[Rfam]
RNA sequence: UCCUGGUGCCCUUCAUUCCACCGGAAUCUGUCAGUGCCAACGCGGAUUUCAGUGGAAUGAAGCCCCCCAGAGA
Numbered sequence: 001u002c003c004u005g006g007u008g009c010c011c012u013u014c015a016u017u018c019c020a021c022c023g024g025a026a027u028c029u030g031u032c033a034g035u036g037c038c039a040a041c042g043c044g045g046a047u048u049u050c051a052g053u054g055g056a057a058u059g060a061a062g063c064c065c066c067c068c069a070g071a072g073a
Stems, first nucleotide, its partner, number of pairs: 011062006019054003023050004028045003
The record is a 73-nucleotide RNA sequence from Hippolais icterina, which matches "mir-205 microRNA precursor family" in Rfam.
Lineage of the source: Eukaryota > Euteleostomi > Dipnotetrapodomorpha > Saurischia > Hippolais.
A search with the family's covariance model found it, with a score of 67 bits.
The family's consensus secondary structure was predicted with RNAalifold.
Gene Ontology terms of the family: RISC complex and miRNA-mediated post-transcriptional gene silencing.